[Rfam]
RNA sequence: CGAGGCAACUCUGGAGAAAGCGCGGACCGAAUCCGCGCUUACCGAAGGUGAAUGGUGCGCUCCGGCGUCGCCGAAACUCUCAGGUCACCAGGACAGAGCGGGGAGG
Numbered sequence: 001c002g003a004g005g006c007a008a009c010u011c012u013g014g015a016g017a018a019a020g021c022g023c024g025g026a027c028c029g030a031a032u033c034c035g036c037g038c039u040u041a042c043c044g045a046a047g048g049u050g051a052a053u054g055g056u057g058c059g060c061u062c063c064g065g066c067g068u069c070g071c072c073g074a075a076a077c078u079c080u081c082a083g084g085u086c087a088c089c090a091g092g093a094c095a096g097a098g099c100g101g102g103g104a105g106g
Stems, first nucleotide, its partner, number of pairs: 006101001009098005019039007041085003044081002048079001050077001054072004
A member of the RNA family "Glycine riboswitch aptamer" from Mycolicibacterium madagascariense, 106 nucleotides long. Its family is annotated with glycine biosynthetic process in the Gene Ontology. About the family: This family represents the bacterial glycine riboswitch.